[Rfam]
RNA: Plastid-psbA-3 3UTR RNA
RNA sequence: AAAAGGAGCAAUAAUCCCUUUCUUGUUCUAGAAAGAGGGCGCUAUUGCUCCUUUUUUA
Numbered sequence: 001a002a003a004a005g006g007a008g009c010a011a012u013a014a015u016c017c018c019u020u021u022c023u024u025g026u027u028c029u030a031g032a033a034a035g036a037g038g039g040c041g042c043u044a045u046u047g048c049u050c051c052u053u054u055u056u057u058a
Stems, first nucleotide, its partner, number of pairs: 002054012015041001020037005
Dot-bracket structure: .((((((((((((.(....(((((........)))))...).))))))))))))....